[Rfam]
RNA sequence: UUCUUAUCCAGAGAGGCGGAGGGACUGGCCCGACGAUGCCCGGCAACCGGUAAAUGAUUAUAAAUCAUUUAACAAGGUGCUAAAUCCUGCAAAGCAGCAUUGCUUUGAGAGAUGAGAG
Numbered sequence: 001u002u003c004u005u006a007u008c009c010a011g012a013g014a015g016g017c018g019g020a021g022g023g024a025c026u027g028g029c030c031c032g033a034c035g036a037u038g039c040c041c042g043g044c045a046a047c048c049g050g051u052a053a054a055u056g057a058u059u060a061u062a063a064a065u066c067a068u069u070u071a072a073c074a075a076g077g078u079g080c081u082a083a084a085u086c087c088u089g090c091a092a093a094g095c096a097g098c099a100u101u102g103c104u105u106u107g108a109g110a111g112a113u114g115a116g117a118g
Base pairs, nucleotide, nucleotide: 001118002117003116004115005114006113007112008111013041015040016039017038021031022030023029025089027087028086042081043080044079045078047077048076049073051071052070053069054068055067056066057065085110090107091106092105093104094103095102